Nucleotides: 091
Base pairs, nucleotide, nucleotide: 001091002090003089004088005087006086007085
Number, partner (000 for none) and nucleotide at each position: 001091a002090u003089u004088g005087g006086a007085u008000a009000a010000a011000g012000g013000a014000u015000g016000u017000u018000u019000u020000u021000c022000a023000u024000c025000u026000g027000c028000g029000u030000u031000a032000u033000c034000u035000a036000u037000c038000u039000g040000c041000a042000a043000u044000u045000u046000c047000c048000u049000g050000a051000g052000c053000c054000a055000g056000g057000a058000a059000u060000u061000g062000a063000a064000g065000a066000u067000a068000a069000u070000u071000u072000a073000u074000g075000u076000u077000a078000u079000g080000c081000u082000g083000a084000u085007a086006u087005c088004c089003a090002a091001u
This 91-nucleotide RNA from Carnegiea gigantea belongs to the Rfam family "Small nucleolar RNA snoR27".
It is annotated as a C/D-box small nucleolar RNA.
Pairs were carried over by alignment from the consensus structure, which was predicted with WAR.
Rfam 15.1 lists 649 matches to the family in 212 species.
On this family, see Brown et al., RNA 2001: "Multiple snoRNA gene clusters from Arabidopsis".
Taxonomically the source falls in Carnegiea (Eukaryota, Viridiplantae, Embryophyta, eudicotyledons).
Clan: snR68 clan.